About this RNA
This 102-nucleotide sequence from Firmicutes bacterium AF36-19BH belongs to the Rfam family "THF (Tetrahydrofolate) riboswitch aptamer". The base pairs follow the family's consensus structure, which is taken from published work.
[Rfam]
RNA sequence: UGCAGAGUAGGUUUGUAUGCGUUAAGUGCCGGCAGGACAGAGAGUUGCCUGUUGGACGAAAAGCCGGUUCGGCUUGCGGUAUACAGACCGCAUCUCGCUGCA
Numbered sequence: 001u002g003c004a005g006a007g008u009a010g011g012u013u014u015g016u017a018u019g020c021g022u023u024a025a026g027u028g029c030c031g032g033c034a035g036g037a038c039a040g041a042g043a044g045u046u047g048c049c050u051g052u053u054g055g056a057c058g059a060a061a062a063g064c065c066g067g068u069u070c071g072g073c074u075u076g077c078g079g080u081a082u083a084c085a086g087a088c089c090g091c092a093u094c095u096c097g098c099u100g101c102a
Stems, first nucleotide, its partner, number of pairs: 001102005010089010020078003026057002029055008040095001042093001044091001061075004